This 100-nucleotide RNA sequence belongs to the Rfam family "DUF3800-III RNA". Rfam classes the family as a small RNA. Rfam's curators put it in the seed alignment.
RNA sequence: UGAAUAGUCGAGUAAGUCCUGAUGUUCCUUAGACUACCGUAAGGAUGUCUUAAUCCAGACUUGAUUUGGUGAGAAUCGAGGCUCAGGGGUUGACUAUUCU
Dot-bracket structure: .((((((...((.....(((((....(((....(..((....))..).......(((((.....))))).........))).)))))..))..)))))).